[Rfam]
RNA sequence: UCACACAAAUCUGGAGAGCAACGCAAUGGCGCGUUCACCGAAGGGGCAAAGUUUUCAGGCUGCCUGAAAACGAAAAUCUCAGGUAAAACGGACAGAUGGGGUCGU
Numbered sequence: 001u002c003a004c005a006c007a008a009a010u011c012u013g014g015a016g017a018g019c020a021a022c023g024c025a026a027u028g029g030c031g032c033g034u035u036c037a038c039c040g041a042a043g044g045g046g047c048a049a050a051g052u053u054u055u056c057a058g059g060c061u062g063c064c065u066g067a068a069a070a071c072g073a074a075a076a077u078c079u080c081a082g083g084u085a086a087a088a089c090g091g092a093c094a095g096a097u098g099g100g101g102u103c104g105u
Stems, first nucleotide, its partner, number of pairs: 006100001009097005020035004037084003040080002044078002051071009

Background: Shown here is a 105-nucleotide RNA from Alysiella filiformis, a member of the family "Glycine riboswitch aptamer". From the family's description: This family represents the bacterial glycine riboswitch. Its family is annotated with glycine biosynthetic process in the Gene Ontology. The source organism's lineage runs through Bacteria, Pseudomonadati, Betaproteobacteria, Alysiella and Alysiella filiformis.